RNA sequence: GAAAAAAAAUCCUCGCAAGGAAUUCCUUGCGAGGUGCCCAUACACAUACUUUGUAUGUAAUGAGGCUAUGGGAGAGGAGAAACCGGAGGAAGAACUUAUGGGGAAACGUAAGCCUUCUCCGCGG
Numbered sequence: 001g002a003a004a005a006a007a008a009a010u011c012c013u014c015g016c017a018a019g020g021a022a023u024u025c026c027u028u029g030c031g032a033g034g035u036g037c038c039c040a041u042a043c044a045c046a047u048a049c050u051u052u053g054u055a056u057g058u059a060a061u062g063a064g065g066c067u068a069u070g071g072g073a074g075a076g077g078a079g080a081a082a083c084c085g086g087a088g089g090a091a092g093a094a095c096u097u098a099u100g101g102g103g104a105a106a107c108g109u110a111a112g113c114c115u116u117c118u119c120c121g122c123g124g
Stems, first nucleotide, its partner, number of pairs: 011034009037072005044058005084121004089117004095112004
Rfam assigns this 124-nucleotide RNA sequence from Halalkalibacter akibai to the family "ylbH leader". The family's RNA type in Rfam is cis-regulatory leader. It scores 89 bits against the family's covariance model. Its family is annotated with regulation of gene expression in the Gene Ontology. The base pairs follow the family's consensus structure. This family is a putative regulatory RNA structure that is found upstream of the ylbH gene in B. subtilis and related low GC Gram-positive bacteria. NCBI's taxonomy places the organism under Bacteria, Bacilli, Bacillaceae, Halalkalibacter, Halalkalibacter akibai. On this family, see Barrick et al., Proc Natl Acad Sci U S A 2004: "New RNA motifs suggest an expanded scope for riboswitches in bacterial genetic control".